[Rfam]
Rfam assigns this 77-nucleotide RNA from Acipenser ruthenus to the family "Small nucleolar RNA SNORD101". Rfam classes the family as a C/D-box small nucleolar RNA. The match comes from Rfam's covariance-model search (56 bits). Rfam links the family to the GO terms RNA processing and nucleolus. The family's consensus secondary structure was predicted with PFOLD.
RNA sequence: GUUUAAAUGAUGAUUUUUGUCUUUAGUCGGAUACCCCUUCACUCAAUUAUGAGUGAGAUACCUAGUCUGAAAAAAAC
Numbered sequence: 001g002u003u004u005a006a007a008u009g010a011u012g013a014u015u016u017u018u019g020u021c022u023u024u025a026g027u028c029g030g031a032u033a034c035c036c037c038u039u040c041a042c043u044c045a046a047u048u049a050u051g052a053g054u055g056a057g058a059u060a061c062c063u064a065g066u067c068u069g070a071a072a073a074a075a076a077c
Base pairs, nucleotide, nucleotide: 001077002076003075004074